Background:
This 135-nucleotide RNA sequence from Senna tora belongs to the Rfam family "small nucleolar RNA snoR137". The family's RNA type in Rfam is H/ACA-box small nucleolar RNA. The organism belongs to Senna, within Eukaryota. A reference for the family is Chen and Wu (2009), "Mining small RNA sequencing data: a new approach to identify small nucleolar RNAs in Arabidopsis", Nucleic Acids Res.

[Rfam]
Nucleotides: 135
Stems, first nucleotide, its partner, number of pairs: 003059006012046005017040004074129005087115003092110004
Number, partner (000 for none) and nucleotide at each position: 001000g002000u003059u004058g005057c006056u007055u008054c009000u010000g011000g012046u013045a014044a015043u016042g017040c018039u019038g020037a021000g022000u023000g024000c025000c026000c027000a028000c029000u030000c031000u032000a033000c034000u035000a036000g037020u038019u039018g040017g041000u042016c043015a044014u045013u046012g047000a048000c049000a050000c051000u052000u053000c054008g055007a056006a057005g058004c059003a060000u061000a062000c063000a064000u065000c066000a067000a068000g069000a070000a071000u072000u073000u074129g075128c076127c077126a078125g079000u080000u081000u082000u083000u084000a085000a086000c087115a088114g089113c090000a091000g092110g093109a094108u095107g096000c097000u098000c099000a100000u101000u102000u103000a104000u105000u106000g107095c108094a109093u110092u111000g112000u113089g114088u115087u116000a117000c118000c119000u120000g121000u122000c123000u124000c125078c126077u127076g128075g129074u130000a131000c132000a133000u134000g135000u